[Rfam]
RNA sequence: ACAGUGCAUCAAGAACGCAAUGCGUACCAACCGACACACUCGAUGCACGGUGGUUUAGAAUGCGGAGAACAACUCUCAAAUUAAUCGAGUAAUC
Numbered sequence: 001a002c003a004g005u006g007c008a009u010c011a012a013g014a015a016c017g018c019a020a021u022g023c024g025u026a027c028c029a030a031c032c033g034a035c036a037c038a039c040u041c042g043a044u045g046c047a048c049g050g051u052g053g054u055u056u057a058g059a060a061u062g063c064g065g066a067g068a069a070c071a072a073c074u075c076u077c078a079a080a081u082u083a084a085u086c087g088a089g090u091a092a093u094c
Stems, first nucleotide, its partner, number of pairs: 006063004015025004026054003031050003035045002040087001042085001065077004
Rfam assigns this 94-nucleotide sequence to the family "SAM-I/IV (S-adenosyl methionine) riboswitch aptamer". Rfam links the family to the GO terms regulation of gene expression and S-adenosylmethionine metabolic process. The family's consensus secondary structure is taken from published work.